This 189-nucleotide RNA sequence from Sporosarcina sp. HYO08 belongs to the Rfam family "6S / SsrS RNA". The family's RNA type in Rfam is non-coding RNA gene. E. coli 6S RNA was the first non coding RNA to be sequenced, but its function was unknown until recently. It consists of 184 nucleotides that fold into an extended hairpin structure with a large single-stranded internal bulge. The 6S RNA specifically associates with RNA polymerase holoenzyme containing the sigma70 specificity factor. This interaction represses expression from a sigma70-dependent promoter during stationary phase. 6S RNA homologs have recently been identified in most bacterial genomes. Many Gram-positive species have two copies of 6S RNA. In Bacillus subtilis, both copies appear to interact with RNA polymerase holoenzyme containing the housekeeping sigma factor and be expressed during different stages of growth. In many proteobacteria, 6S RNA may be processed from a transcript encoding homologs of the E. coli YgfA protein which is a putative 5-formyltetrahydrofolate cycloligase activity. The source organism's lineage runs through Bacteria, Bacillati, Bacillota, Bacilli and Sporosarcina.
RNA sequence: UACAAGCUGCGUUGUACGUAUGGAUUUUAAGUUUUAACCUUUAAGCUGUAAAAGGGAGUUUUAUCUAGAAAUUGGAAUGGCAUGCCUAACAUUUAGAUUAGGACAAACAGGAAUAUUUCUGCGAACACCCACUUUGAGGAGUGGUGGUUUAAAACUUUCUAAACAAUAUACGGCAAAGGCGGCUUUCUU
Numbered sequence: 001u002a003c004a005a006g007c008u009g010c011g012u013u014g015u016a017c018g019u020a021u022g023g024a025u026u027u028u029a030a031g032u033u034u035u036a037a038c039c040u041u042u043a044a045g046c047u048g049u050a051a052a053a054g055g056g057a058g059u060u061u062u063a064u065c066u067a068g069a070a071a072u073u074g075g076a077a078u079g080g081c082a083u084g085c086c087u088a089a090c091a092u093u094u095a096g097a098u099u100a101g102g103a104c105a106a107a108c109a110g111g112a113a114u115a116u117u118u119c120u121g122c123g124a125a126c127a128c129c130c131a132c133u134u135u136g137a138g139g140a141g142u143g144g145u146g147g148u149u150u151a152a153a154a155c156u157u158u159c160u161a162a163a164c165a166a167u168a169u170a171c172g173g174c175a176a177a178g179g180c181g182g183c184u185u186u187c188u189u
Base pairs, nucleotide, nucleotide: 004185005184006183007182008181009180010179012176013175014174015173017172018171019170030156031155032154033153035151036150037149038147039146054130055129056128058126059125060124061123067120068119069118070117071116072115079108085102086101087100088099089098